Rfam assigns this 66-nucleotide RNA sequence from Mytilus coruscus to the family "mir-1991 microRNA precursor family". The match comes from Rfam's covariance-model search (74 bits). Lineage of the source: Eukaryota > Protostomia > Pteriomorphia > Mytiloidea > Mytilus.

RNA sequence: AACCUUACCCUGUUAAUCGGAGAAGUGUCUACUUGAUUCUUACUUCUCGUUUCACAGGGUAUAUUU
Numbered sequence: 001a002a003c004c005u006u007a008c009c010c011u012g013u014u015a016a017u018c019g020g021a022g023a024a025g026u027g028u029c030u031a032c033u034u035g036a037u038u039c040u041u042a043c044u045u046c047u048c049g050u051u052u053c054a055c056a057g058g059g060u061a062u063a064u065u066u
Stems, first nucleotide, its partner, number of pairs: 006061008015052002018049002021047006
Its family is annotated with RISC complex and miRNA-mediated post-transcriptional gene silencing in the Gene Ontology.